RNA sequence: AAAGGUUUAAUUUUAAUUCACACACAUAUCGACACUAACAAUCGGGGUGCCAAACGGUCGGUUGUUUAGGGAUAUGUGGAGGCUAAAC
Numbered sequence: 001a002a003a004g005g006u007u008u009a010a011u012u013u014u015a016a017u018u019c020a021c022a023c024a025c026a027u028a029u030c031g032a033c034a035c036u037a038a039c040a041a042u043c044g045g046g047g048u049g050c051c052a053a054a055c056g057g058u059c060g061g062u063u064g065u066u067u068a069g070g071g072a073u074a075u076g077u078g079g080a081g082g083c084u085a086a087a088c
Stems, first nucleotide, its partner, number of pairs: 023078008035069004041062004049058003
t44 RNA: an 88-nucleotide RNA from Gallibacterium anatis. By type it is a small RNA. Rfam describes the family as follows. This family consists of a number of bacterial RNA genes of between 135 and 170 bases in length.